ZMP/ZTP riboswitch aptamer (pfl RNA motif): a 90-nucleotide RNA sequence from Streptomyces luteolifulvus. Gene Ontology terms of the family: regulation of purine nucleotide biosynthetic process and one-carbon metabolic process. Pairs were carried over by alignment from the consensus structure, which is taken from published work.
[Rfam]
RNA sequence: CCGCAGGGCCGUGACUGGCGCGCUGGGAUGGGACCGACCAUCGGGGAGCGGCCCGAGCUGGAAUGUGUGCCGUGCGCCUGGGCCGUACCG
Numbered sequence: 001c002c003g004c005a006g007g008g009c010c011g012u013g014a015c016u017g018g019c020g021c022g023c024u025g026g027g028a029u030g031g032g033a034c035c036g037a038c039c040a041u042c043g044g045g046g047a048g049c050g051g052c053c054c055g056a057g058c059u060g061g062a063a064u065g066u067g068u069g070c071c072g073u074g075c076g077c078c079u080g081g082g083c084c085g086u087a088c089c090g
Stems, first nucleotide, its partner, number of pairs: 006054007015045002017078005028041004069083003
Taxonomically the source falls in Streptomyces (Bacteria, Actinomycetota, Actinomycetes, Kitasatosporales).